[Rfam]
RNA sequence: UGUGAGCAAGCGCUGGAAUCGCCCCAAGUUGCCGAAAGGUGGCAGCACUCUUCGCGGUGUGGGACAGGGGCCCAGGGGCUCACCAAAGG
Numbered sequence: 001u002g003u004g005a006g007c008a009a010g011c012g013c014u015g016g017a018a019u020c021g022c023c024c025c026a027a028g029u030u031g032c033c034g035a036a037a038g039g040u041g042g043c044a045g046c047a048c049u050c051u052u053c054g055c056g057g058u059g060u061g062g063g064a065c066a067g068g069g070g071c072c073c074a075g076g077g078g079c080u081c082a083c084c085a086a087a088g089g
Stems, first nucleotide, its partner, number of pairs: 002083006011076001013075004021071005028043006046059004
About this RNA:
The record is an 89-nucleotide sequence from Rhizobium phage RHph_TM3_3_3, which matches "DUF3800-VII RNA" in Rfam. By type it is a small RNA.